[Rfam]
Nucleotides: 063
Stems, first nucleotide, its partner, number of pairs: 002061002005058009017046002020043004025038002
Number, partner (000 for none) and nucleotide at each position: 001000g002061c003060u004000g005058a006057c007056u008055u009054g010053a011052g012051c013050u014000g015000c016000u017046c018045g019000u020043a021042c022041a023040g024000a025038a026037c027000u028000c029000a030000c031000a032000u033000u034000g035000u036000u037026g038025u039000u040023u041022u042021g043020u044000u045018c046017g047000u048000u049000c050013g051012g052011c053010u054009c055008g056007a057006g058005u059000u060003a061002g062000g063000g
A member of the RNA family "mir-375 microRNA precursor family" from Argiope bruennichi, 63 nucleotides long. Gene Ontology terms of the family: miRNA-mediated post-transcriptional gene silencing and RISC complex. The literature on the family includes a 2005 paper in Genes Dev by Chen et al., "The developmental miRNA profiles of zebrafish as determined by small RNA cloning". A search with the family's covariance model found it, with a score of 52 bits. The source organism's lineage runs through Eukaryota, Panarthropoda, Chelicerata, Arachnida and Argiope.